The family of this 181-nucleotide RNA from Medicago truncatula is "MIR2619 microRNA precursor family".
Gene Ontology terms of the family: RISC complex and miRNA-mediated post-transcriptional gene silencing.
The organism belongs to Medicago, within Eukaryota.
Pairs were carried over by alignment from the consensus structure, which was predicted with RNAalifold.
[Rfam]
RNA sequence: AAACCGACCCCUAAGUUUUGCAACUGUAACAGUUUUGGCCCCCCAAGGUCAAUUUUUGGUAAAAAAUAUAAUAAUAAUAACAUGUGGCACCUCACUUAGGGUGCCAUGUUAGUGUAGACCGAGUCAAAAUUGACCUUGAGGGGCCUAAACUACUACAGUUGAAAAACUUAGGGGUCGGUUU
Numbered sequence: 001a002a003a004c005c006g007a008c009c010c011c012u013a014a015g016u017u018u019u020g021c022a023a024c025u026g027u028a029a030c031a032g033u034u035u036u037g038g039c040c041c042c043c044c045a046a047g048g049u050c051a052a053u054u055u056u057u058g059g060u061a062a063a064a065a066a067u068a069u070a071a072u073a074a075u076a077a078u079a080a081c082a083u084g085u086g087g088c089a090c091c092u093c094a095c096u097u098a099g100g101g102u103g104c105c106a107u108g109u110u111a112g113u114g115u116a117g118a119c120c121g122a123g124u125c126a127a128a129a130u131u132g133a134c135c136u137u138g139a140g141g142g143g144c145c146u147a148a149a150c151u152a153c154u155a156c157a158g159u160u161g162a163a164a165a166a167c168u169u170a171g172g173g174g175u176c177g178g179u180u181u
Stems, first nucleotide, its partner, number of pairs: 001181002004178005012170008021161008031151005037145006044138003082109002085106007